The record is a 92-nucleotide RNA from Actinoplanes sp. OR16, which matches "Glycine riboswitch aptamer" in Rfam. Its family is annotated with glycine biosynthetic process in the Gene Ontology. A search with the family's covariance model found it, with a score of 67 bits.

RNA sequence: AACACCUGUGCGGAAGAGACCGUCCUCGCGACGGCGCCGAAGGGGCAAACCCUCCCCGGAAAACUCUCAGGCAGAAGGACCGCGUGGGCAGG
Numbered sequence: 001a002a003c004a005c006c007u008g009u010g011c012g013g014a015a016g017a018g019a020c021c022g023u024c025c026u027c028g029c030g031a032c033g034g035c036g037c038c039g040a041a042g043g044g045g046c047a048a049a050c051c052c053u054c055c056c057c058g059g060a061a062a063a064c065u066c067u068c069a070g071g072c073a074g075a076a077g078g079a080c081c082g083c084g085u086g087g088g089c090a091g092g
Base pairs, nucleotide, nucleotide: 006087007086008085009084010083011082012081013080020034021033022032023031036072037071038070039068040067043066044065045064050058